[Rfam]
RNA sequence: GUUUUCCGGUUCACAUUCAUCGCUGUCGGUGGGUUGGUUAUGAUGUCAACUCGCCGGCCGGUGAGUGACAGCCGUGUCCAU
Dot-bracket structure: ((..(.((.....(((((((((..(((((((.(((............))).)))))))))))))))).....)).)...))
RNA: mir-181 microRNA precursor family